[Rfam]
RNA sequence: AAGCUAAGAAGUAAGGUGUUGUGCCAGAGAGUAGUGCCUUAUGAGCUUUAUACGGGUUUGACAUUUACCACAAUCUGGCUAGAAACCAUAGGUUUUGAAGGAAAAUGUCAGAG
Numbered sequence: 001a002a003g004c005u006a007a008g009a010a011g012u013a014a015g016g017u018g019u020u021g022u023g024c025c026a027g028a029g030a031g032u033a034g035u036g037c038c039u040u041a042u043g044a045g046c047u048u049u050a051u052a053c054g055g056g057u058u059u060g061a062c063a064u065u066u067a068c069c070a071c072a073a074u075c076u077g078g079c080u081a082g083a084a085a086c087c088a089u090a091g092g093u094u095u096u097g098a099a100g101g102a103a104a105a106u107g108u109c110a111g112a113g
Stems, first nucleotide, its partner, number of pairs: 001048004011042012024078004061108003082096006
A member of the RNA family "drum RNA", 113 nucleotides long. Rfam describes the family as follows. Firmicutes, Bacteroidetes (1 example), Proteobacteria (2 examples), Spirochaetes (2 examples). It is annotated as a small RNA. It is one of the family's seed sequences.